[Rfam]
The record is a 110-nucleotide sequence from Gelatoporia subvermispora, which matches "Small nucleolar RNA Z13/snr52" in Rfam.
Its family is annotated with RNA processing and nucleolus in the Gene Ontology.
The family has 42 seed sequences and 1,203 matches in Rfam 15.1.
Taxonomically the source falls in Gelatoporia subvermispora (Eukaryota, Opisthokonta, Fungi, Agaricomycetes).
It is annotated as a C/D-box small nucleolar RNA.
Pairs were carried over by alignment from the consensus structure, which was predicted with PFOLD.

RNA sequence: UGCUGUCGUGUGAUGUAACCAUUCGGAUGUAAAUGAGCUACGGCUCGUAACGUCCGAGAGCGCAUAAAACCGUGUGGAUGUUUCCGUUGCCUUCCUUCUGACUCUUCAAU
Numbered sequence: 001u002g003c004u005g006u007c008g009u010g011u012g013a014u015g016u017a018a019c020c021a022u023u024c025g026g027a028u029g030u031a032a033a034u035g036a037g038c039u040a041c042g043g044c045u046c047g048u049a050a051c052g053u054c055c056g057a058g059a060g061c062g063c064a065u066a067a068a069a070c071c072g073u074g075u076g077g078a079u080g081u082u083u084c085c086g087u088u089g090c091c092u093u094c095c096u097u098c099u100g101a102c103u104c105u106u107c108a109a110u
Stems, first nucleotide, its partner, number of pairs: 004108002024086004